RNA sequence: GGCCGGAUAAGGCGCUCGCGCCGCAUCCGGCACCGUUGCCAAACUCCGGUGCCGCAAUAAUGUCGGAUGCGAUGCUUGCGCAUCUUAUCCGACC
Numbered sequence: 001g002g003c004c005g006g007a008u009a010a011g012g013c014g015c016u017c018g019c020g021c022c023g024c025a026u027c028c029g030g031c032a033c034c035g036u037u038g039c040c041a042a043a044c045u046c047c048g049g050u051g052c053c054g055c056a057a058u059a060a061u062g063u064c065g066g067a068u069g070c071g072a073u074g075c076u077u078g079c080g081c082a083u084c085u086u087a088u089c090c091g092a093c094c
Stems, first nucleotide, its partner, number of pairs: 002031007011022004062093008071084005
RNA: Nucleoid-associated noncoding RNA 4 (CssrE)
Organism: Shigella flexneri